[Rfam]
RNA sequence: UGCAGAUGAUGCUAACUUUUUGCUAUCUAAAUACACUUGAUGACAACCACCAAGAUCGCUGAUGCA
Number, nucleotide and partner (000 for none) at each position: 001u066002g065003c064004a063005g000006a000007u000008g000009a000010u000011g000012c000013u000014a000015a000016c000017u000018u000019u000020u000021u000022g000023c000024u000025a000026u000027c000028u000029a000030a000031a000032u000033a000034c000035a000036c000037u000038u000039g000040a000041u000042g000043a000044c000045a000046a000047c000048c000049a000050c000051c000052a000053a000054g000055a000056u000057c000058g000059c000060u000061g000062a000063u004064g003065c002066a001
Rfam assigns this 66-nucleotide RNA from Oceanodroma tethys to the family "Small nucleolar RNA SNORD24".
Rfam classes the family as a C/D-box small nucleolar RNA.